[Rfam]
This 117-nucleotide sequence from Rossellomorea vietnamensis belongs to the Rfam family "epsC RNA". The family's RNA type in Rfam is cis-regulatory element.
RNA sequence: UGGGAAUGUCUCCUUGCCAUUAUCCAUGGAGGCACUCGGUCACGCCGUGGGUGAAGAGAAACUUUGCCUUAGACGCACGUCGUCAAUGGUUGGAUGUGAGGAAGGGUUAGAUGCCCA
Numbered sequence: 001u002g003g004g005a006a007u008g009u010c011u012c013c014u015u016g017c018c019a020u021u022a023u024c025c026a027u028g029g030a031g032g033c034a035c036u037c038g039g040u041c042a043c044g045c046c047g048u049g050g051g052u053g054a055a056g057a058g059a060a061a062c063u064u065u066g067c068c069u070u071a072g073a074c075g076c077a078c079g080u081c082g083u084c085a086a087u088g089g090u091u092g093g094a095u096g097u098g099a100g101g102a103a104g105g106g107u108u109a110g111a112u113g114c115c116c117a
Base pairs, nucleotide, nucleotide: 001019002018003017007034008033009032010031011030012029013028035100036099037098038097039095040094041093044090045089046088049069050068051067052066053065054064055063056062072084073083074082075081104116105115106114107113